[Rfam]
Small nucleolar RNA SNORA65: a 128-nucleotide RNA from Terrapene triunguis. About the family: U65 belongs to the H/ACA class of snoRNAs which are thought to guide the sites of modification of uridines to pseudouridines. The organism belongs to Terrapene, within Eukaryota. It is annotated as an H/ACA-box small nucleolar RNA. Gene Ontology terms of the family: RNA processing and nucleolus.
RNA sequence: CCUGCCACUGUACCUGUCUAGUAUGAAGUGGCUGGUACAAUCCAGUGGUGAGCUGAUAGAAAACACCAGCUUAGGAAACAGGGUUAUUCUCUCUGUGAGUAACUCUGUGCCAAAGUCUGGGAACACCA
Dot-bracket structure: ....((((((.......((((((.....)).)))).......))))))...............(.(((((((.((...((((((..(((.......)))..))))))..)).)))).)))).......